The family of this 102-nucleotide RNA sequence from Lysinibacillus sp. BF-4 is "Purine riboswitch aptamer". Its Rfam clan is "Purine riboswitches". A search with the family's covariance model found it, with a score of 86 bits. The base pairs follow the family's consensus structure, which is taken from published work.
[Rfam]
RNA sequence: AUAGUUCUAUUCAAAAAUACUCAUAUAAUCGCGAGGAUAUGGCUCGCAAGUUUCUACCGGCUCACCUUAAAUGAGCUGACUAUGGGUUGUUUCGUUUAGGCA
Dot-bracket structure: ..................(((((((...(.(((((.......))))).)........(((((((.......)))))))..)))))))...............